[Rfam]
RNA sequence: CGUCUUCACCGGGGGAGCCGCUGGCCGGCUGAGAGGUCCCGUCCCGGGACGACCCCAGGAACCUGAUCCGGUUCACACCGGCGUAGGGAGGUGACCUGCCGCAUGC
Numbered sequence: 001c002g003u004c005u006u007c008a009c010c011g012g013g014g015g016a017g018c019c020g021c022u023g024g025c026c027g028g029c030u031g032a033g034a035g036g037u038c039c040c041g042u043c044c045c046g047g048g049a050c051g052a053c054c055c056c057a058g059g060a061a062c063c064u065g066a067u068c069c070g071g072u073u074c075a076c077a078c079c080g081g082c083g084u085a086g087g088g089a090g091g092u093g094a095c096c097u098g099c100c101g102c103a104u105g106c
Base pairs, nucleotide, nucleotide: 006094007093008092009091010090011056012055013054014053017029018028019027020026036050037049038048039047040046062087063086064085065084068081069080070079071078